RNA sequence: AGCAAAAUGAUGAUGAACUAUUAGCCUAAUUUUAUGCUGAAGAAACAUAUGAUAUGCCUUCAAAGUUCUCUGAUUGAC
Numbered sequence: 001a002g003c004a005a006a007a008u009g010a011u012g013a014u015g016a017a018c019u020a021u022u023a024g025c026c027u028a029a030u031u032u033u034a035u036g037c038u039g040a041a042g043a044a045a046c047a048u049a050u051g052a053u054a055u056g057c058c059u060u061c062a063a064a065g066u067u068c069u070c071u072g073a074u075u076g077a078c
Stems, first nucleotide, its partner, number of pairs: 002078001003076003